[Rfam]
Shown here is an 87-nucleotide sequence from Acer saccharum, a member of the family "Small nucleolar RNA R44/J54/Z268 family". Gene Ontology terms of the family: RNA processing and nucleolus. Rfam classes the family as a C/D-box small nucleolar RNA.
RNA sequence: UGUGCAAAUGAUAAUAAAGUAGACAGGGACCCUACACUCCAUUGGAGAUUGAUGAUGAUUUGUCUAUGGGAAUCUCUUUGAUGCACA
Numbered sequence: 001u002g003u004g005c006a007a008a009u010g011a012u013a014a015u016a017a018a019g020u021a022g023a024c025a026g027g028g029a030c031c032c033u034a035c036a037c038u039c040c041a042u043u044g045g046a047g048a049u050u051g052a053u054g055a056u057g058a059u060u061u062g063u064c065u066a067u068g069g070g071a072a073u074c075u076c077u078u079u080g081a082u083g084c085a086c087a
Stems, first nucleotide, its partner, number of pairs: 002086005